[Rfam]
A member of the RNA family "MIR396 microRNA precursor family" from Solanum lycopersicum, 119 nucleotides long. The base pairs follow the family's consensus structure, which was predicted with WAR. The family has 26 seed sequences and 744 matches in Rfam 15.1. NCBI's taxonomy places the organism under Eukaryota, Embryophyta, Mesangiospermae, Solanales, Solanum subgen. Lycopersicon. The literature on the family includes a 2004 paper in Mol Cell by Jones-Rhoades and Bartel, "Computational identification of plant microRNAs and their targets, including a stress-induced miRNA". Rfam links the family to the GO terms RISC complex and miRNA-mediated post-transcriptional gene silencing.
RNA sequence: UUUUGUGUUUUUCCACAGCUUUCUUGAACUGCAUCUACAAUUUCAAUUCAUUAUUGAAAAAGAAAAAAUUGAUUCAUAUUGUUGUUGCGGUUCAAUAAAGCUGUGGGAAGAUACAGAUA
Numbered sequence: 001u002u003u004u005g006u007g008u009u010u011u012u013c014c015a016c017a018g019c020u021u022u023c024u025u026g027a028a029c030u031g032c033a034u035c036u037a038c039a040a041u042u043u044c045a046a047u048u049c050a051u052u053a054u055u056g057a058a059a060a061a062g063a064a065a066a067a068a069u070u071g072a073u074u075c076a077u078a079u080u081g082u083u084g085u086u087g088c089g090g091u092u093c094a095a096u097a098a099a100g101c102u103g104u105g106g107g108a109a110g111a112u113a114c115a116g117a118u119a
Stems, first nucleotide, its partner, number of pairs: 003116005013106003017102006024095004029090005